[Rfam]
RNA: 7SK RNA
Organism: Galbula dea
RNA sequence: GAAAGUUUACAGGCAAUCUGACUGAGACAUCUAUCAACCCAUUGAUCGCCAGGGCUGAUUUGGCUGGCUAGGCAGGUGUCCCCUUCCUCCCUAACCGCUCAAUGUGCAUCCCUCCCGAAGCUGCGCGCUCGGUCGAAGAGGACUACCUCACACCAAUAGAGACGGUACUGUUCAUCGGUCAAGGGUAUACGGUAGCUGCGCUCCCCUGCUAGGACCUCCAAACAAGCUCAAGGUCCAUUUGUAGGAGAACGUAGGUUAGUCAAGCUUCCAAGACUUCAGGCACAUCCAAGUGAGGCACUGCAUGGGGCAGUCUGCCAUUGCUU
Numbered sequence: 001g002a003a004a005g006u007u008u009a010c011a012g013g014c015a016a017u018c019u020g021a022c023u024g025a026g027a028c029a030u031c032u033a034u035c036a037a038c039c040c041a042u043u044g045a046u047c048g049c050c051a052g053g054g055c056u057g058a059u060u061u062g063g064c065u066g067g068c069u070a071g072g073c074a075g076g077u078g079u080c081c082c083c084u085u086c087c088u089c090c091c092u093a094a095c096c097g098c099u100c101a102a103u104g105u106g107c108a109u110c111c112c113u114c115c116c117g118a119a120g121c122u123g124c125g126c127g128c129u130c131g132g133u134c135g136a137a138g139a140g141g142a143c144u145a146c147c148u149c150a151c152a153c154c155a156a157u158a159g160a161g162a163c164g165g166u167a168c169u170g171u172u173c174a175u176c177g178g179u180c181a182a183g184g185g186u187a188u189a190c191g192g193u194a195g196c197u198g199c200g201c202u203c204c205c206c207u208g209c210u211a212g213g214a215c216c217u218c219c220a221a222a223c224a225a226g227c228u229c230a231a232g233g234u235c236c237a238u239u240u241g242u243a244g245g246a247g248a249a250c251g252u253a254g255g256u257u258a259g260u261c262a263a264g265c266u267u268c269c270a271a272g273a274c275u276u277c278a279g280g281c282a283c284a285u286c287c288a289a290g291u292g293a294g295g296c297a298c299u300g301c302a303u304g305g306g307g308c309a310g311u312c313u314g315c316c317a318u319u320g321c322u323u
Stems, first nucleotide, its partner, number of pairs: 003099001005095003012090002016085001020083001026080007034072002038066001039063003044060004048055002109165002112161003115132004120128002133156001135154001140151001195265003201259002205255005216247004222242005288323003292318001294316003297311005